The family of this 88-nucleotide RNA from Ramlibacter cellulosilyticus is "Glycine riboswitch aptamer". From the family's description: This family represents the bacterial glycine riboswitch. A search with the family's covariance model found it, with a score of 53 bits. Pairs were carried over by alignment from the consensus structure.

RNA sequence: GACGGCACUGCGGGAGAGCGGGGCUGCGUGCCCCCGCCGAAGGCGCAAACUCCUAUCAUCGCUCAGGCACCCGGACCGCAGCCCGAUC
Numbered sequence: 001g002a003c004g005g006c007a008c009u010g011c012g013g014g015a016g017a018g019c020g021g022g023g024c025u026g027c028g029u030g031c032c033c034c035c036g037c038c039g040a041a042g043g044c045g046c047a048a049a050c051u052c053c054u055a056u057c058a059u060c061g062c063u064c065a066g067g068c069a070c071c072c073g074g075a076c077c078g079c080a081g082c083c084c085g086a087u088c
Stems, first nucleotide, its partner, number of pairs: 008081006020034004036068003039064002043062003049056001
Dot-bracket structure: .......((((((......((((.......)))).(((((..(((...(......)...))))).))).......)))))).......